[Rfam]
RNA sequence: AGCCUAAACUGUACCUUCGCGUACGGCACGGCUCAAAAAACCGAUGAGAGAUAAAGAGCUCCUAGUCAGAGCACUCUCAUCGGUCGUAUGGGGAAACUCAUACGGGUCCCGCAAGGGAUC
Numbered sequence: 001a002g003c004c005u006a007a008a009c010u011g012u013a014c015c016u017u018c019g020c021g022u023a024c025g026g027c028a029c030g031g032c033u034c035a036a037a038a039a040a041c042c043g044a045u046g047a048g049a050g051a052u053a054a055a056g057a058g059c060u061c062c063u064a065g066u067c068a069g070a071g072c073a074c075u076c077u078c079a080u081c082g083g084u085c086g087u088a089u090g091g092g093g094a095a096a097c098u099c100a101u102a103c104g105g106g107u108c109c110c111g112c113a114a115g116g117g118a119u120c
Stems, first nucleotide, its partner, number of pairs: 001033004009026006041083010058072004085104008105120006
Shown here is a 120-nucleotide RNA sequence, a member of the family "LOOT RNA". The base pairs follow the family's consensus structure, which is taken from published work.